[Rfam]
RNA sequence: AGAACCCGUCAGGGGAGUCUCGCCAAAGAGACUGAGAGGCUAAUAGCGCAAUGCGCGGCUUAGCGACCCUUAGAACCUGACCCAGUUGAUACUGGCGUAGGAAGACGGGUAUCUUUGCCA
Numbered sequence: 001a002g003a004a005c006c007c008g009u010c011a012g013g014g015g016a017g018u019c020u021c022g023c024c025a026a027a028g029a030g031a032c033u034g035a036g037a038g039g040c041u042a043a044u045a046g047c048g049c050a051a052u053g054c055g056c057g058g059c060u061u062a063g064c065g066a067c068c069c070u071u072a073g074a075a076c077c078u079g080a081c082c083c084a085g086u087u088g089a090u091a092c093u094g095g096c097g098u099a100g101g102a103a104g105a106c107g108g109g110u111a112u113c114u115u116u117g118c119c120a
Base pairs, nucleotide, nucleotide: 006108007107008106009105010104011070012069013068014067017032018031019030020029021028039064040063041062042061043060076101077100078099079098082095083094084093085092
RNA: TPP riboswitch aptamer (THI element)